[Rfam]
RNA: c-di-AMP riboswitch aptamer (ydaO/yuaA leader)
Organism: Paenibacillus bovis
RNA sequence: AACGUCACAACGCUUAGUUUCCAUUGAACAUGGAAAGCGGGGGAACCAAACGUCAUAGUAAUCUGCGAACUGAGUACAGUUCAUACUGCCUAUGACACGGGGUGAAUUCCGGAACCUUCCGGAACGGGCAAUCUUCCAGCCCGAACCCGACAGCUAACCUCGUCAGCGUAUCAGGGAGAACUU
Numbered sequence: 001a002a003c004g005u006c007a008c009a010a011c012g013c014u015u016a017g018u019u020u021c022c023a024u025u026g027a028a029c030a031u032g033g034a035a036a037g038c039g040g041g042g043g044a045a046c047c048a049a050a051c052g053u054c055a056u057a058g059u060a061a062u063c064u065g066c067g068a069a070c071u072g073a074g075u076a077c078a079g080u081u082c083a084u085a086c087u088g089c090c091u092a093u094g095a096c097a098c099g100g101g102g103u104g105a106a107u108u109c110c111g112g113a114a115c116c117u118u119c120c121g122g123a124a125c126g127g128g129c130a131a132u133c134u135u136c137c138a139g140c141c142c143g144a145a146c147c148c149g150a151c152a153g154c155u156a157a158c159c160u161c162g163u164c165a166g167c168g169u170a171u172c173a174g175g176g177a178g179a180a181c182u183u
Stems, first nucleotide, its partner, number of pairs: 011168004018036007037163006047099001100148003108123004126142004